[Rfam]
RNA: SAM riboswitch aptamer (S box leader)
Organism: Pontibacter rufus
RNA sequence: AAUUUAUAGACGAAGAGGCGAGAGAACAGGCUCUGUGACCCUCUGGCAACCAUCCGCAUGGAAAGGUGCCAAGUCCUGCCCAACAAACAAAAGGGAAAAUAUAAAUU
Numbered sequence: 001a002a003u004u005u006a007u008a009g010a011c012g013a014a015g016a017g018g019c020g021a022g023a024g025a026a027c028a029g030g031c032u033c034u035g036u037g038a039c040c041c042u043c044u045g046g047c048a049a050c051c052a053u054c055c056g057c058a059u060g061g062a063a064a065g066g067u068g069c070c071a072a073g074u075c076c077u078g079c080c081c082a083a084c085a086a087a088c089a090a091a092a093g094g095g096a097a098a099a100u101a102u103a104a105a106u107u
Stems, first nucleotide, its partner, number of pairs: 001107008014044005022033003027078004045070004050066002053062003074098001079095003